The record is a 179-nucleotide RNA sequence from Roseobacter ponti, which matches "Ruegeria cis52 sRNA" in Rfam. The base pairs follow the family's consensus structure, which was predicted with RNAfold. Rfam classes the family as a small RNA. Rfam links the family to the GO term regulation of gene expression. Taxonomically the source falls in Roseobacter (Bacteria, Pseudomonadota, Alphaproteobacteria, Rhodobacterales).
RNA sequence: UUCGCAGAGCAUGCUUCAUAACGAUAUCGGAGAACUUCACGCCUUUGAGGCGCGCCGUGCGGAUAUACUGCGCCGUCAUUACUUCCGUCAUCGACGCCCGCGUCAUCCGUGCGAUAUAUCCCAUGCCGUAGAGGGCGAUGGUUAUCACCGGCAGGGUGAAAUUCUCAAAAGUCGCGUUC
Numbered sequence: 001u002u003c004g005c006a007g008a009g010c011a012u013g014c015u016u017c018a019u020a021a022c023g024a025u026a027u028c029g030g031a032g033a034a035c036u037u038c039a040c041g042c043c044u045u046u047g048a049g050g051c052g053c054g055c056c057g058u059g060c061g062g063a064u065a066u067a068c069u070g071c072g073c074c075g076u077c078a079u080u081a082c083u084u085c086c087g088u089c090a091u092c093g094a095c096g097c098c099c100g101c102g103u104c105a106u107c108c109g110u111g112c113g114a115u116a117u118a119u120c121c122c123a124u125g126c127c128g129u130a131g132a133g134g135g136c137g138a139u140g141g142u143u144a145u146c147a148c149c150g151g152c153a154g155g156g157u158g159a160a161a162u163u164c165u166c167a168a169a170a171g172u173c174g175c176g177u178u179c
Base pairs, nucleotide, nucleotide: 005140006139009136010135012133014131015130016128021124029122030121038113040111041110042109046105047104048103050101051100052099054097055075057073058072059071060070061069062068082096084094085093147177149174150173151172152171154165155164156163